This 62-nucleotide RNA sequence from Pan troglodytes belongs to the Rfam family "U7 small nuclear RNA".
RNA sequence: CAGUGUUACAGCUCUUUUAGAAUUUGUCUAGCAGGCUUUCCAGUUUUUGCUGGAAAGCCCAA
Numbered sequence: 001c002a003g004u005g006u007u008a009c010a011g012c013u014c015u016u017u018u019a020g021a022a023u024u025u026g027u028c029u030a031g032c033a034g035g036c037u038u039u040c041c042a043g044u045u046u047u048u049g050c051u052g053g054a055a056a057g058c059c060c061a062a
Stems, first nucleotide, its partner, number of pairs: 034059011